[Rfam]
RNA: T-box leader
Nucleotides: 222
Stems, first nucleotide, its partner, number of pairs: 007098002015093004025081006035071003046068006103127003107123001130142003173186005192219004203215004
Number, partner (000 for none) and nucleotide at each position: 001000u002000a003000a004000a005000a006000a007098g008097c009000a010000a011000u012000g013000a014000a015093a016092a017091g018090a019000u020000g021000a022000g023000u024000a025081a026080g027079u028078u029077c030076g031000u032000a033000a034000u035071g036070u037069u038000u039000u040000c041000a042000g043000a044000g045000a046068a047067c048066u049065u050064g051063u052000g053000g054000u055000g056000g057000g058000u059000g060000u061000g062000a063051a064050c065049a066048a067047g068046u069037a070036a071035c072000u073000a074000a075000g076030c077029g078028g079027a080026c081025u082000g083000a084000a085000g086000a087000u088000g089000g090018u091017c092016u093015u094000u095000g096000a097008g098007c099000g100000a101000a102000a103127g104126a105125u106000u107123g108000g109000c110000g111000a112000g113000c114000a115000u116000u117000a118000g119000u120000a121000a122000g123107c124000u125105a126104u127103c128000g129000a130142u131141g132140g133000u134000u135000a136000a137000c138000u139000a140132c141131c142130a143000a144000u145000a146000u147000c148000a149000a150000g151000u152000u153000a154000a155000u156000u157000a158000u159000g160000g161000c162000a163000a164000c165000a166000u167000g168000a169000u170000a171000a172000g173186c174185u175184g176183g177182u178000u179000u180000u181000u182177a183176c184175c185174a186173g187000g188000a189000a190000u191000u192219a193218a194217g195216g196000u197000g198000g199000u200000a201000c202000c203215g204214c205213g206212u207000a208000u209000g210000a211000a212206a213205c214204g215203c216195c217194c218193u219192u220000a221000a222000g